[Rfam]
RNA: mir-184 microRNA precursor family
RNA sequence: CCGCUCUCACCCCCUUAUCACUUUUCCAGCCCAGCUUCUUCGCUCUGACUGUUGGACGGAGAACUGAUAAGGGU
Numbered sequence: 001c002c003g004c005u006c007u008c009a010c011c012c013c014c015u016u017a018u019c020a021c022u023u024u025u026c027c028a029g030c031c032c033a034g035c036u037u038c039u040u041c042g043c044u045c046u047g048a049c050u051g052u053u054g055g056a057c058g059g060a061g062a063a064c065u066g067a068u069a070a071g072g073g074u
Base pairs, nucleotide, nucleotide: 012073013072014071015070016069017068018067019066020065022063023062024061025060026059027058030055031054